[Rfam]
RNA sequence: UGGUUUCAUUAGCCAUAGUAACAACGAAUUACAGGAAGUCAGCAGCGGUCAUAGUAGCUGAGAAGGUGAGGAAACUCACUGGAGCGAAGGAC
Numbered sequence: 001u002g003g004u005u006u007c008a009u010u011a012g013c014c015a016u017a018g019u020a021a022c023a024a025c026g027a028a029u030u031a032c033a034g035g036a037a038g039u040c041a042g043c044a045g046c047g048g049u050c051a052u053a054g055u056a057g058c059u060g061a062g063a064a065g066g067u068g069a070g071g072a073a074a075c076u077c078a079c080u081g082g083a084g085c086g087a088a089g090g091a092c
Stems, first nucleotide, its partner, number of pairs: 001026002004023001006021001008019004040045001048092003057085003066079003
Record summary: Group II catalytic intron D1-D4-1: a 92-nucleotide sequence from Clostridiales bacterium KLE1615. Lineage of the source: Bacteria > Bacillati > Bacillota > Clostridia > Eubacteriales. It scores 45 bits against the family's covariance model. Rfam 15.1 lists 2,508 matches to the family in 1,144 species. Pairs were carried over by alignment from the consensus structure. From the family's description: Group II introns are found in rRNA, tRNA and mRNA of organelles in fungi, plants and protists, and also in mRNA in bacteria.